[Rfam]
Nucleotides: 088
Base pairs, nucleotide, nucleotide: 002083003082004081005080006079007078013072014071015070016069018068020066021065026062027061028060029059030058
Number, partner (000 for none) and nucleotide at each position: 001000g002083g003082g004081c005080u006079g007078g008000c009000c010000u011000u012000a013072g014071c015070c016069c017000a018068g019000c020066g021065g022000u023000u024000c025000c026062u027061u028060c029059g030058a031000g032000u033000c034000u035000g036000g037000c038000u039000u040000c041000c042000c043000c044000a045000c046000a047000g048000c049000c050000c051000g052000g053000a054000g055000g056000g057000u058030u059029c060028g061027a062026g063000a064000u065021c066020c067000a068018c069016g070015g071014g072013c073000g074000c075000u076000c077000u078007c079006c080005a081004g082003u083002c084000c085000u086000u087000a088000a
This 88-nucleotide RNA sequence from Cavia porcellus belongs to the Rfam family "Vault RNA". A reference for the family is Stadler et al. (2009), "Evolution of Vault RNAs", Mol Biol Evol. It scores 63 bits against the family's covariance model. The source organism's lineage runs through Eukaryota, Metazoa, Chordata, Amniota and Cavia.